[Rfam]
RNA sequence: AUGCACCCCUUUGUACACUGAGGUUCCUGCGCGCUGUCAGCCCCCACCCGACAGCGACUCGCGGCGUUUUCUUAGCC
Dot-bracket structure: .((.((......)).))....(((.(....).)))............(.((.((..............)).)).)..